[Rfam]
Nucleotides: 758
Stems, first nucleotide, its partner, number of pairs: 008021005026052002030048007061072004092144008105120005111133005147180004153174002156170002163202005186214003190210006217250005224234003238438006277293006299324004304319006346384006355374006397410004442610003449606004465506007478494006514550003518546006555595006564586001566583007617638003621634005639657005646684004663677005693730006699723001700716002703712003743757003
Number, partner (000 for none) and nucleotide at each position: 001000g002000g003000a004000u005000a006000a007000u008021c009020c010019c011018g012017g013000g014000c015000a016000a017012c018011c019010g020009g021008g022000g023000a024000a025000a026052g027051g028000u029000u030048g031047g032046c033045g034044g035043c036042a037000g038000c039000u040000g041000g042036u043035g044034c045033c046032g047031c048030c049000c050000u051027c052026c053000c054000c055000u056000u057000g058000c059000a060000a061072c062071c063070g064069c065000g066000u067000c068000a069064g070063c071062g072061g073000a074000u075000u076000g077000a078000a079000a080000g081000g082000c083000a084000c085000a086000u087000a088000u089000c090000a091000c092144c093143a094142g095141c096140u097139c098138c099137u100000c101000u102000g103000a104000u105120c106119c107118g108117g109116a110000g111133u112132c113131g114130u115129g116109u117108c118107c119106g120105g121000u122000c123000a124000g125000u126000u127000c128000a129115c130114a131113c132112g133111a134000a135000c136000c137099a138098g139097g140096a141095g142094c143093u144092g145000a146000g147180c148179g149178g150177c151000g152000a153174g154173c155000g156170g157169c158000g159000a160000u161000u162000a163202g164201a165200a166199a167198c168000c169157g170156c171000g172000c173154g174153c175000g176000a177150g178149c179148c180147g181000a182000g183000u184000c185000a186214g187213g188212c189000c190210c191209a192208c193207a194206g195205g196000a197000a198167g199166u200165u201164u202163c203000g204000a205195c206194c207193u208192g209191u210190g211000c212188g213187c214186c215000g216000a217250c218249g219248c220247a221246g222000u223000u224234a225233c226232c227000c228000a229000g230000a231000g232226g233225g234224u235000u236000u237000u238438g239437g240436u241435u242434g243433c244000u245000a246221c247220u248219g249218c250217g251000c252000a253000g254000a255000c256000c257000a258000g259000a260000a261000c262000g263000c264000a265000g266000u267000c268000g269000c270000g271000u272000u273000u274000c275000c276000c277293g278292g279291c280290g281289g282288g283000c284000c285000c286000a287000c288282c289281c290280c291279g292278c293277c294000a295000a296000a297000a298000g299324g300323c301322c302321c303000c304319g305318c306317u307316c308315g309314u310000u311000c312000g313000c314309g315308c316307g317306a318305g319304c320000a321302g322301g323300g324299c325000g326000c327000g328000c329000a330000a331000g332000g333000g334000a335000a336000g337000c338000g339000u340000g341000g342000c343000g344000g345000c346384g347383g348382g349381g350380a351379g352000u353000g354000a355374g356373c357372g358371g359370g360369c361000c362000u363000g364000g365000c366000a367000a368000a369360g370359c371358u372357c373356g374355u375000c376000a377000a378000c379351c380350u381349c382348c383347u384346c385000a386000a387000a388000u389000u390000g391000g392000g393000g394000c395000g396000g397410c398409g399408u400407g401000a402000a403000a404000a405000a406000c407400c408399g409398c410397g411000u412000c413000a414000c415000c416000c417000c418000a419000c420000u421000g422000c423000a424000a425000a426000a427000g428000c429000g430000a431000a432000u433243g434242c435241a436240a437239c438238c439000u440000g441000a442610g443609a444608g445000u446000u447000a448000a449606g450605a451604g452603g453000u454000c455000a456000g457000a458000c459000c460000c461000g462000u463000a464000a465506c466505g467504c468503g469502g470501g471500g472000c473000c474000a475000a476000c477000g478494u479493c480492c481491g482490g483489c484000c485000a486000a487000a488000a489483g490482u491481c492480g493479g494478a495000g496000c497000c498000g499000u500471c501470c502469c503468c504467g505466u506465g507000g508000c509000a510000a511000c512000g513000g514550u515549g516548c517000c518546g519545a520544c521543g522542c523541g524000a525000a526000g527000g528000u529000a530000a531000g532000a533000u534000u535000u536000g537000c538000a539000g540000g541523c542522g543521u544520g545519u546518c547000c548516g549515c550514a551000c552000c553000a554000c555595g556594u557593c558592c559591g560590g561000c562000g563000a564586g565000c566583c567582g568581c569580u570579u571578c572577c573000g574000g575000c576000a577572g578571g579570g580569a581568g582567c583566g584000u585000c586564c587000g588000a589000a590560c591559c592558g593557g594556g595555c596000g597000a598000a599000g600000a601000g602000g603452c604451c605450u606449c607000a608444c609443u610442c611000g612000a613000u614000a615000g616000a617638u618637c619636c620000c621634g622633a623632u624631c625630g626000g627000a628000a629000a630625c631624g632623g633622u634621c635000a636619g637618g638617a639657c640656g641655g642654u643653c644000c645000c646684g647683c648682c649681a650000u651000g652000a653643g654642a655641c656640c657639g658000a659000g660000a661000c662000a663677u664676c665675c666674g667673c668000a669000u670000g671000c672000c673667g674666c675665g676664g677663a678000g679000a680000g681649u682648g683647g684646c685000g686000u687000c688000g689000g690000g691000g692000a693730g694729c695728a696727c697726a698725c699723g700716g701715c702000c703712c704711g705710c706000g707000a708000a709000a710705g711704c712703g713000a714000g715701g716700c717000g718000c719000c720000c721000a722000a723699c724000a725698g726697u727696g728695u729694g730693c731000c732000g733000a734000c735000g736000g737000g738000a739000a740000a741000g742000a743757g744756c745755g746000c747000g748000u749000g750000g751000c752000g753000a754000a755745c756744g757743c758000c
MISL RNA: a 758-nucleotide RNA sequence from Opitutus terrae. The sequence is in the family's curated seed alignment. Lineage of the source: Bacteria > Pseudomonadati > Opitutia > Opitutales > Opitutus terrae.